Source information: The record is a 65-nucleotide sequence from Caenorhabditis angaria, which matches "microRNA mir-251 microRNA precursor family" in Rfam. The organism belongs to Caenorhabditis, within Eukaryota. A search with the family's covariance model found it, with a score of 57 bits. On this family, see Lim et al., Genes Dev 2003: "The microRNAs of Caenorhabditis elegans". The family's consensus secondary structure was predicted with RNAalifold. Rfam 15.1 lists 14 matches to the family in 12 species.
RNA sequence: UUAAGUAGUGGUGCCGCUCUUAUCAGUUCCUUAAAAUGCGAAUAAGUGUUGCUCACUGCUUAACA
Numbered sequence: 001u002u003a004a005g006u007a008g009u010g011g012u013g014c015c016g017c018u019c020u021u022a023u024c025a026g027u028u029c030c031u032u033a034a035a036a037u038g039c040g041a042a043u044a045a046g047u048g049u050u051g052c053u054c055a056c057u058g059c060u061u062a063a064c065a
Base pairs, nucleotide, nucleotide: 002062003061004060005059006058007057008056009055010054011053013052014051016049017048019046020045021044022043023042